Background: The family of this 99-nucleotide RNA from Pseudomonas fluvialis is "Pseudomon-Rho RNA". The source organism's lineage runs through Bacteria, Gammaproteobacteria, Pseudomonadales, Pseudomonadaceae and Pseudomonas. Rfam classes the family as a cis-regulatory element.
RNA sequence: UCCGGGCAGCCGCACUUCUCGCUGCGGUUCCCGCAAGCCGUCGCCGACGCAUUCCUUCCGUAAGCAUCGCGAUCCUGUCGCCCUCUUUCCGGCCACGGC
Numbered sequence: 001u002c003c004g005g006g007c008a009g010c011c012g013c014a015c016u017u018c019u020c021g022c023u024g025c026g027g028u029u030c031c032c033g034c035a036a037g038c039c040g041u042c043g044c045c046g047a048c049g050c051a052u053u054c055c056u057u058c059c060g061u062a063a064g065c066a067u068c069g070c071g072a073u074c075c076u077g078u079c080g081c082c083c084u085c086u087u088u089c090c091g092g093c094c095a096c097g098g099c
Stems, first nucleotide, its partner, number of pairs: 010027005037099004043093004069081005